U4atac minor spliceosomal RNA: a 126-nucleotide sequence from Cercocebus atys.
Rfam describes the family as follows. U4atac is an essential component of the minor U12-type spliceosome complex which is required for removal of the rarer class of eukaryotic introns (AT-AC, U12-type).
Lineage of the source: Eukaryota > Dipnotetrapodomorpha > Eutheria > Boreoeutheria > Cercocebus.
It scores 84 bits against the family's covariance model.
Pairs were carried over by alignment from the consensus structure, which is taken from published work.
It is annotated as a spliceosomal small nuclear RNA.
The family is grouped with related families in Rfam's "U4 clan".
[Rfam]
RNA sequence: ACCACCCUUUUCUUGGGGUUGCGCUACUAUCCAAGGAGUGCAUAGCGAGGGCAGCACUGCUAAUGCCUACACAGCACUCCCAGCUCAGCUGGAGCUUUGCUUUACCUUGGUGCAAUUUUUGGAAAA
Number, nucleotide and partner (000 for none) at each position: 001a000002c000003c000004a000005c000006c018007c017008u016009u015010u000011u000012c000013u000014u000015g009016g008017g007018g006019u000020u000021g060022c059023g058024c000025u000026a000027c054028u053029a000030u051031c050032c049033a000034a000035g000036g000037a000038g046039u045040g000041c000042a000043u000044a000045g039046c038047g000048a000049g032050g031051g030052c000053a028054g027055c000056a000057c000058u023059g022060c021061u000062a000063a000064u000065g000066c000067c000068u000069a000070c000071a000072c000073a000074g000075c000076a000077c000078u000079c000080c000081c000082a000083g113084c112085u110086c109087a108088g000089c000090u104091g103092g102093a101094g100095c099096u000097u000098u000099g095100c094101u093102u092103u091104a090105c000106c000107u000108u087109g086110g085111u000112g084113c083114a000115a000116u000117u000118u000119u000120u000121g000122g000123a000124a000125a000126a000